[Rfam]
RNA sequence: UGAUGCCAGGGGCAAAAGGUCUAAAUCCACAUGAGCUUGCUCAUAGGUGGGUGAAAGACCUUGGGACCCGCCCCAAUAUGAGCAUAAAAGUGGAGCGUAAGCUUCACGAUAUGCGAAUAUAGGGCAGGAUUGUGGGAGUACGAAGUACGGAACAAUCCGUAAGGCAUCU
Numbered sequence: 001u002g003a004u005g006c007c008a009g010g011g012g013c014a015a016a017a018g019g020u021c022u023a024a025a026u027c028c029a030c031a032u033g034a035g036c037u038u039g040c041u042c043a044u045a046g047g048u049g050g051g052u053g054a055a056a057g058a059c060c061u062u063g064g065g066a067c068c069c070g071c072c073c074c075a076a077u078a079u080g081a082g083c084a085u086a087a088a089a090g091u092g093g094a095g096c097g098u099a100a101g102c103u104u105c106a107c108g109a110u111a112u113g114c115g116a117a118u119a120u121a122g123g124g125c126a127g128g129a130u131u132g133u134g135g136g137a138g139u140a141c142g143a144a145g146u147a148c149g150g151a152a153c154a155a156u157c158c159g160u161a162a163g164g165c166a167u168c169u
Stems, first nucleotide, its partner, number of pairs: 002168006010068002013065001016062007026051005031044005072124003076120004082114004090107007127158007138148004
The record is a 169-nucleotide RNA from Roseburia sp. CAG:303, which matches "Clostridiales-1 RNA" in Rfam. Lineage of the source: Bacteria > Bacillati > Bacillota > Clostridia > Roseburia. The family's consensus secondary structure is taken from published work.